The family of this 134-nucleotide RNA from Gasterosteus aculeatus is "U11 spliceosomal RNA". Taxonomically the source falls in Gasterosteus (Eukaryota, Vertebrata, Percomorphaceae, Perciformes). By type it is a spliceosomal small nuclear RNA. The family has 72 seed sequences and 2,595 matches in Rfam 15.1. Pairs were carried over by alignment from the consensus structure, which is taken from published work.
RNA sequence: AAAAAGGGCUUCUGCCAUGUUUGGUACAGGAGGAGUGGGGAUGACCCCUCCUUUUGCGGAAUCGCCAUCAAGAGAUUUCGGAAGCAUAAUUUUUAACACAGGGGCUGCUAGUGAUCACUUGUCCUGGCGCCCCG
Numbered sequence: 001a002a003a004a005a006g007g008g009c010u011u012c013u014g015c016c017a018u019g020u021u022u023g024g025u026a027c028a029g030g031a032g033g034a035g036u037g038g039g040g041a042u043g044a045c046c047c048c049u050c051c052u053u054u055u056g057c058g059g060a061a062u063c064g065c066c067a068u069c070a071a072g073a074g075a076u077u078u079c080g081g082a083a084g085c086a087u088a089a090u091u092u093u094u095a096a097c098a099c100a101g102g103g104g105c106u107g108c109u110a111g112u113g114a115u116c117a118c119u120u121g122u123c124c125u126g127g128c129g130c131c132c133c134g
Stems, first nucleotide, its partner, number of pairs: 008085005013026005027056009037047003057080007102132004107128005113123003